The record is a 120-nucleotide sequence from Starkeya sp. ORNL1, which matches "Alphaproteobacterial sRNA ar35" in Rfam. The pairing is the family consensus, mapped onto this sequence. The family's RNA type in Rfam is small RNA. NCBI's taxonomy places the organism under Bacteria, Pseudomonadati, Alphaproteobacteria, Xanthobacteraceae, Starkeya. A reference for the family is del Val et al. (2012), "A survey of sRNA families in alpha-proteobacteria", RNA Biol. A search with the family's covariance model found it, with a score of 65 bits.

[Rfam]
RNA sequence: AGCUCGGCCGGCAACCUUCAGGCCGCGUGAGACAUUGCCUCCGGUCUUUGACCACGGAUGUACUGGCAUUGGCCGUUGAGGCACUUGGGAGAAGGUCGGGUAAGCCCGGCCUUUUUUCGU
Numbered sequence: 001a002g003c004u005c006g007g008c009c010g011g012c013a014a015c016c017u018u019c020a021g022g023c024c025g026c027g028u029g030a031g032a033c034a035u036u037g038c039c040u041c042c043g044g045u046c047u048u049u050g051a052c053c054a055c056g057g058a059u060g061u062a063c064u065g066g067c068a069u070u071g072g073c074c075g076u077u078g079a080g081g082c083a084c085u086u087g088g089g090a091g092a093a094g095g096u097c098g099g100g101u102a103a104g105c106c107c108g109g110c111c112u113u114u115u116u117u118c119g120u
Stems, first nucleotide, its partner, number of pairs: 005025005034085001036083005043074004049068002052066003086119014